[Rfam]
RNA sequence: CUUACUUACUGGGGGCGCCUGUAAGCUCAGGCUGAGAUAGGAGCGCGAUGAAGUUUCCUGGUCCCUUUGAACCUGAUCUGGGUCAUGCCAGCGUAGGGAAGUAGACUUUUGGUGUG
Numbered sequence: 001c002u003u004a005c006u007u008a009c010u011g012g013g014g015g016c017g018c019c020u021g022u023a024a025g026c027u028c029a030g031g032c033u034g035a036g037a038u039a040g041g042a043g044c045g046c047g048a049u050g051a052a053g054u055u056u057c058c059u060g061g062u063c064c065c066u067u068u069g070a071a072c073c074u075g076a077u078c079u080g081g082g083u084c085a086u087g088c089c090a091g092c093g094u095a096g097g098g099a100a101g102u103a104g105a106c107u108u109u110u111g112g113u114g115u116g
Base pairs, nucleotide, nucleotide: 006104007103008102009101010100011066012065013064014063016060017032018031019030020029021028039059040058041057042056043055072097073096074095075094078091079090080089081088

The record is a 116-nucleotide RNA sequence from Evansella caseinilytica, which matches "TPP riboswitch aptamer (THI element)" in Rfam.
Vitamin B(1) in its active form thiamin pyrophosphate (TPP) is an essential coenzyme that is synthesised by coupling of pyrimidine and thiazole moieties in bacteria.
NCBI's taxonomy places the organism under Bacteria, Bacillota, Bacilli, Bacillaceae, Evansella.
The family's consensus secondary structure is taken from published work.
A search with the family's covariance model found it, with a score of 82 bits.